Shown here is a 92-nucleotide RNA sequence from Crocodylus porosus, a member of the family "tRNA". Rfam classes the family as a transfer RNA. The base pairs follow the family's consensus structure, which is taken from published work.
[Rfam]
RNA sequence: GUUCCAGUAGUGCAAUUGGUUAGCGCACAAUACUUAUACAGCAGUACAACAGAGCCAUGCUGAGGUUGUGAGUUCAAGCCUCACCUGGAACA
Numbered sequence: 001g002u003u004c005c006a007g008u009a010g011u012g013c014a015a016u017u018g019g020u021u022a023g024c025g026c027a028c029a030a031u032a033c034u035u036a037u038a039c040a041g042c043a044g045u046a047c048a049a050c051a052g053a054g055c056c057a058u059g060c061u062g063a064g065g066u067u068g069u070g071a072g073u074u075c076a077a078g079c080c081u082c083a084c085c086u087g088g089a090a091c092a
Stems, first nucleotide, its partner, number of pairs: 001091007010026004028062002031059002068084005
Rfam links the family to the GO term triplet codon-amino acid adaptor activity.